Description: Rfam assigns this 85-nucleotide RNA from Oceanobacillus limi to the family "c-di-GMP-I riboswitch aptamer". It scores 79 bits against the family's covariance model.
RNA sequence: UAAAGAAAAAGGCAAAUUCAUCGAAAGGUGAAGACGCAAAACUAAAGGGGCUAAGAUCUUUGGAUUAUGCCAGCCAGCUGCCAAU
Dot-bracket structure: ...........((...((((((....))))))...))..(.((...(((((....(((....)))...)))..)))).)......
Numbered sequence: 001u002a003a004a005g006a007a008a009a010a011g012g013c014a015a016a017u018u019c020a021u022c023g024a025a026a027g028g029u030g031a032a033g034a035c036g037c038a039a040a041a042c043u044a045a046a047g048g049g050g051c052u053a054a055g056a057u058c059u060u061u062g063g064a065u066u067a068u069g070c071c072a073g074c075c076a077g078c079u080g081c082c083a084a085u
Stems, first nucleotide, its partner, number of pairs: 012037002017032006040079001042077002047075002049071003056065003
Pairs were carried over by alignment from the consensus structure, which is taken from published work.